Rfam assigns this 145-nucleotide sequence to the family "Group II catalytic intron D1-D4-7". The pairing is the family consensus, mapped onto this sequence. Rfam links the family to the GO term Group II intron splicing. Rfam's curators put it in the seed alignment. Rfam describes the family as follows. Group II introns are found in rRNA, tRNA and mRNA of organelles in fungi, plants and protists, and also in mRNA in bacteria.
[Rfam]
RNA sequence: CCCUAUAUGCUGCUAUAGGUAUCCUAUCGAUACAUGAGGGGUUGGCAACGACCCGGUCUGAAGCUAUCGAGACAAUGUCCCCGGCCUCUGACCCUGUGGAUUCGUGAGAAAAAGCAGGUCUUGUCAGUGUCAGACAAGUAGGGGG
Numbered sequence: 001c002c003c004u005a006u007a008u009g010c011u012g013c014u015a016u017a018g019g020u021a022u023c024c025u026a027u028c029g030a031u032a033c034a035u036g037a038g039g040g041g042u043u044g045g046c047a048a049c050g051a052c053c054c055g056g057u058c059u060g061a062a063g064c065u066a067u068c069g070a071g072a073c074a075a076u077g078u079c080c081c082c083g084g085c086c087u088c089u090g091a092c093c094c095u096g097u098g099g100a101u102u103c104g105u106g107a108g109a110a111a112a113a114g115c116a117g118g119u120c121u122u123g124u125c126a127g128u129g130u131c132a133g134a135c136a137a138g139u140a141g142g143g144g145g
Base pairs, nucleotide, nucleotide: 002019003018004017005016006015007014028069029068030067031066032065033060034059036057039054040053041052042051043050044049083093084092086090095116096115097114102109103108120138121137122136123135124134125133